[Rfam]
Overview: The record is a 308-nucleotide RNA from Gossypium mustelinum, which matches "Plant signal recognition particle RNA" in Rfam. By type it is a non-coding RNA gene.
RNA sequence: GCCGAGCUCGGUAACGUGAGCUUGUAACCCGAGUGGGGGCUUUAAGGUGAUGGAACGCGGGCUUGGCUCCGCUGAGUCGGAUCUCGGGUGGUUUAACUCUGGCUUGCCCGUUCCAAGUUAAGAGUCGAGCCAAGGGGCUUGAGUGUAAACUCUGAGCCUCGUGGUUCCUAAAGUAGAGGGUACUGCGUGAGGCUGGUUUCACAGAGCAGCGAAGACCUCUCUCUCUUGACAGUGGAGGGAUAACAAGCUGGAUCUACUCCGAUCCAAACAUGGCUCAGCGAGCUAACCCUAACUGGACCGUCAUAUUU
Numbered sequence: 001g002c003c004g005a006g007c008u009c010g011g012u013a014a015c016g017u018g019a020g021c022u023u024g025u026a027a028c029c030c031g032a033g034u035g036g037g038g039g040c041u042u043u044a045a046g047g048u049g050a051u052g053g054a055a056c057g058c059g060g061g062c063u064u065g066g067c068u069c070c071g072c073u074g075a076g077u078c079g080g081a082u083c084u085c086g087g088g089u090g091g092u093u094u095a096a097c098u099c100u101g102g103c104u105u106g107c108c109c110g111u112u113c114c115a116a117g118u119u120a121a122g123a124g125u126c127g128a129g130c131c132a133a134g135g136g137g138c139u140u141g142a143g144u145g146u147a148a149a150c151u152c153u154g155a156g157c158c159u160c161g162u163g164g165u166u167c168c169u170a171a172a173g174u175a176g177a178g179g180g181u182a183c184u185g186c187g188u189g190a191g192g193c194u195g196g197u198u199u200c201a202c203a204g205a206g207c208a209g210c211g212a213a214g215a216c217c218u219c220u221c222u223c224u225c226u227u228g229a230c231a232g233u234g235g236a237g238g239g240a241u242a243a244c245a246a247g248c249u250g251g252a253u254c255u256a257c258u259c260c261g262a263u264c265c266a267a268a269c270a271u272g273g274c275u276c277a278g279c280g281a282g283c284u285a286a287c288c289c290u291a292a293c294u295g296g297a298c299c300g301u302c303a304u305a306u307u308u
Stems, first nucleotide, its partner, number of pairs: 001040003004023007028037003044307002047304007056295002060290002063286005070280009079265005086258002089256003094252001099251008108239002111237005117230008127167006134160008142151003168173001175220005184213001186211003193204003